[Rfam]
RNA sequence: GAUGACGGUUGUCAGGCUAGCUGUCAUCCCAGUGCCCAGACACUGGGAUCCAGAAAUUUUAAUUGUAAGUAAGCAUACUGGGUUGAUAAGUAUAAAAGUAGCUAGAAAAUAAACAUUUUUGAUGAGAUUAUAUGGAAAACUGGAUGCCAGUGUCAAGCACUGGCAUGACACCCUUCACGGACUUUUA
Dot-bracket structure: ..........(((.(......((((((.(((((((...((((((((.((((((......................................................................................)))))).))))))))..))))))).)))))).......).))).....
Shown here is a 187-nucleotide RNA sequence from Trichonephila clavata, a member of the family "Wolbachia sRNA 46". Pairs were carried over by alignment from the consensus structure. The organism belongs to Trichonephila, within Eukaryota. A reference for the family is Mayoral et al. (2014), "Wolbachia small noncoding RNAs and their role in cross-kingdom communications", Proc Natl Acad Sci U S A.